A member of the RNA family "Small nucleolar RNA snR8" from Williopsis jadinii, 190 nucleotides long. The match comes from Rfam's covariance-model search (95 bits). The family's RNA type in Rfam is H/ACA-box small nucleolar RNA. A reference for the family is Parker et al. (1988), "Genetic analysis of small nuclear RNAs in Saccharomyces cerevisiae: viable sextuple mutant", Mol Cell Biol.

RNA sequence: GGUUUCUCUGAUACGAACGCGUUCUAUUCACUGCACCAUCAAAGUCUUUGGCUUAACAUUGAUGAUUGGAGGGGAAAAGAAUGCCAGAGAAACGCAUAUCGAUAGCGCACCUCAUACUGAGCUUUUGUUUGGUAGUUUCCUCCGUGGGAAUGCCCUAGCAACUCUUGGUAACUACGCUGUCGAUACAUUC
Dot-bracket structure: ..................((.((.......((.((.(((((..................)))))..)).))........)).)).............(((((..(((.........(((.(..((...(.........((......))........)..))..).)))......)))..)))))......